[Rfam]
RNA sequence: UCGGUUCCGGUUCACGCUCACGGCUCUGCUGACGCGGAGCGGGCGACCCGGCGACC
Numbered sequence: 001u002c003g004g005u006u007c008c009g010g011u012u013c014a015c016g017c018u019c020a021c022g023g024c025u026c027u028g029c030u031g032a033c034g035c036g037g038a039g040c041g042g043g044c045g046a047c048c049c050g051g052c053g054a055c056c
Stems, first nucleotide, its partner, number of pairs: 003056003007051004015045005023040007
Dot-bracket structure: ..(((.((((....(((((...(((((((....))))))))))))..))))..)))
L31-Actinobacteria ribosomal protein leader: a 56-nucleotide RNA from Nocardia takedensis. The family is grouped with related families in Rfam's "Ribosomal Protein L31 Leader clan". Rfam classes the family as a cis-regulatory leader.